[Rfam]
RNA sequence: UUCCAUGACGGCAGACCACUCCACUUUUUGGACUGCCGGACAUGAAAGAAAGGAGGAAAGGCCCUGCUCGGGCUGCGGCAGUGUGGAGACCUGCCGUAAGGCACGAGGCAAUAGCCUGUGCGAGGACGUUCCAUGCGGAGGCAGAACGUUCAGAGCGAAUAAGCAUGGCG
Numbered sequence: 001u002u003c004c005a006u007g008a009c010g011g012c013a014g015a016c017c018a019c020u021c022c023a024c025u026u027u028u029u030g031g032a033c034u035g036c037c038g039g040a041c042a043u044g045a046a047a048g049a050a051a052g053g054a055g056g057a058a059a060g061g062c063c064c065u066g067c068u069c070g071g072g073c074u075g076c077g078g079c080a081g082u083g084u085g086g087a088g089a090c091c092u093g094c095c096g097u098a099a100g101g102c103a104c105g106a107g108g109c110a111a112u113a114g115c116c117u118g119u120g121c122g123a124g125g126a127c128g129u130u131c132c133a134u135g136c137g138g139a140g141g142c143a144g145a146a147c148g149u150u151c152a153g154a155g156c157g158a159a160u161a162a163g164c165a166u167g168g169c170g
Stems, first nucleotide, its partner, number of pairs: 009038006016031003061073004065157005074098008083090002101121005107116003124151008134143003